[Rfam]
This 149-nucleotide RNA sequence from Pullulanibacillus pueri belongs to the Rfam family "FMN riboswitch aptamer (RFN element)". The organism belongs to Pullulanibacillus, within Bacteria.

Nucleotides: 149
Base pairs, nucleotide, nucleotide: 004146005145006144007143008142009141010140017029018028019027031129032128033118034117035064036063037062038061059116060115068093069092098114099113100112101111102110120132121131122130
Number, partner (000 for none) and nucleotide at each position: 001000g002000a003000a004146u005145u006144c007143c008142u009141u010140c011000g012000g013000g014000g015000u016000c017029g018028g019027g020000u021000g022000a023000a024000a025000u026000u027019c028018c029017c030000a031129a032128c033118c034117g035064g036063c037062g038061g039000u040000g041000a042000u043000g044000a045000a046000g047000c048000a049000g050000u051000g052000c053000u054000u055000c056000u057000a058000a059116g060115u061038c062037c063036g064035u065000g066000a067000c068093c069092c070000g071000g072000u073000u074000a075000a076000u077000a078000c079000u080000u081000u082000u083000g084000u085000g086000u087000u088000a089000a090000a091000c092069g093068g094000u095000g096000g097000a098114u099113c100112u101111g102110g103000u104000g105000u106000a107000a108000c109000u110102c111101c112100a113099g114098a115060g116059c117034c118033g119000a120132c121131a122130g123000u124000u125000a126000a127000a128032g129031u130122c131121u132120g133000g134000a135000u136000g137000g138000g139000a140010g141009a142008a143007g144006g145005a146004g147000a148000g149000u

Rfam 15.1 lists 6,230 matches to the family in 5,120 species.